[Rfam]
RNA: Vault RNA
RNA sequence: GCGCUGGCUUAGCUCAGUGGUUACAUCGCAGAUCUGUCUUCCACAGAAAAGUCGUUCCUCCCUGCCGAGGGAUCAAACCACGGGCGCUGUCCAGCGUUUUC
Numbered sequence: 001g002c003g004c005u006g007g008c009u010u011a012g013c014u015c016a017g018u019g020g021u022u023a024c025a026u027c028g029c030a031g032a033u034c035u036g037u038c039u040u041c042c043a044c045a046g047a048a049a050a051g052u053c054g055u056u057c058c059u060c061c062c063u064g065c066c067g068a069g070g071g072a073u074c075a076a077a078c079c080a081c082g083g084g085c086g087c088u089g090u091c092c093a094g095c096g097u098u099u100u101c
Stems, first nucleotide, its partner, number of pairs: 002096006012085004017081004026076001028074001
Dot-bracket structure: .((((((....((((.((((.....(.(.............................................).).)))))))).....)))))).....